Rfam assigns this 218-nucleotide RNA sequence from Pseudomonas agarici to the family "sucA-II RNA". A search with the family's covariance model found it, with a score of 195 bits. Rfam classes the family as a cis-regulatory element.
RNA sequence: CUGCGGCGCGGGCUUCAACCGGCGCCGUAGUUUUAACCUGAGCGACGGCUCAUAAAGCUGUGGCUCUUAUUUUGAAGAAAUGAGACCAGCAGGGGCAUCCGGGCUGGUACCCGGACUAUCAGCGUGAUCCUAAGUGACUUGUUCAAGUCGCGGCAUUCGGACUUUUGCAAGCUUGCUCGGUGUUUUCGCCGAUGGUGUCCCCUAACCGAGGGUGACCA
Number, nucleotide and partner (000 for none) at each position: 001c030002u029003g028004c027005g026006g025007c024008g023009c022010g000011g020012g019013c000014u000015u000016c000017a000018a000019c012020c011021g000022g009023c008024g007025c006026c005027g004028u003029a002030g001031u000032u000033u000034u000035a000036a000037c000038c000039u000040g066041a065042g064043c063044g000045a061046c060047g000048g058049c057050u056051c000052a000053u000054a000055a000056a050057g049058c048059u000060g046061u045062g000063g043064c042065u041066c040067u000068u000069a000070u000071u000072u000073u000074g000075a000076a000077g000078a000079a000080a000081u000082g000083a000084g000085a000086c000087c000088a000089g000090c000091a203092g202093g201094g200095g199096c197097a196098u115099c114100c113101g112102g111103g110104c000105u000106g000107g000108u000109a000110c103111c102112c101113g100114g099115a098116c195117u194118a193119u192120c191121a000122g189123c188124g187125u000126g185127a184128u000129c180130c179131u000132a000133a177134g176135u175136g174137a173138c171139u170140u169141g168142u167143u000144c000145a000146a163147g162148u161149c160150g000151c000152g000153g000154c000155a000156u000157u000158c000159g000160g149161a148162c147163u146164u000165u000166u000167g142168c141169a140170a139171g138172c000173u137174u136175g135176c134177u133178c000179g130180g129181u000182g000183u000184u127185u126186u000187c124188g123189c122190c000191g120192a119193u118194g117195g116196u097197g096198u000199c095200c094201c093202c092203u091204a000205a000206c000207c000208g000209a000210g000211g000212g000213u000214g000215a000216c000217c000218a000